[Rfam]
This 70-nucleotide RNA sequence from Catellatospora sp. TT07R-123 belongs to the Rfam family "Transposase-2 RNA". The organism belongs to Catellatospora, within Bacteria. The family's consensus secondary structure is taken from published work. Rfam classes the family as a small RNA.
RNA sequence: GAAACGACCACCCCGCACCAUCAACCUGGUGGGUCAGACGGGGACCGUCGACCGGCAACGGACGACUGCA
Numbered sequence: 001g002a003a004a005c006g007a008c009c010a011c012c013c014c015g016c017a018c019c020a021u022c023a024a025c026c027u028g029g030u031g032g033g034u035c036a037g038a039c040g041g042g043g044a045c046c047g048u049c050g051a052c053c054g055g056c057a058a059c060g061g062a063c064g065a066c067u068g069c070a
Stems, first nucleotide, its partner, number of pairs: 011043005018032005047066004052061003